RNA sequence: GGUAGCCCGUGCAUCGUGGCCUCUGCCCGAACCGACCCUGACGUACUUCCCCAACGCCAGGUUCGCCGUCCCGGGCAGGGACCUCGCUGCAGGAGCUCACCCUG
Numbered sequence: 001g002g003u004a005g006c007c008c009g010u011g012c013a014u015c016g017u018g019g020c021c022u023c024u025g026c027c028c029g030a031a032c033c034g035a036c037c038c039u040g041a042c043g044u045a046c047u048u049c050c051c052c053a054a055c056g057c058c059a060g061g062u063u064c065g066c067c068g069u070c071c072c073g074g075g076c077a078g079g080g081a082c083c084u085c086g087c088u089g090c091a092g093g094a095g096c097u098c099a100c101c102c103u104g
Base pairs, nucleotide, nucleotide: 010091011090012089013088015086016085018083019082021080022079023078024077025076026075027074028073029072031069032068033065034064035063037061038060039059040058042056043055044054